[Rfam]
RNA sequence: ACUCUUCUCAUUUGUAAGUCGCUUUGGAUAAAAGCGUCUACUAAAUGAUUAAAU
Numbered sequence: 001a002c003u004c005u006u007c008u009c010a011u012u013u014g015u016a017a018g019u020c021g022c023u024u025u026g027g028a029u030a031a032a033a034g035c036g037u038c039u040a041c042u043a044a045a046u047g048a049u050u051a052a053a054u
Stems, first nucleotide, its partner, number of pairs: 013043001014041003020036006
RNA: UnaL2 LINE 3' element
Organism: Cyprinus carpio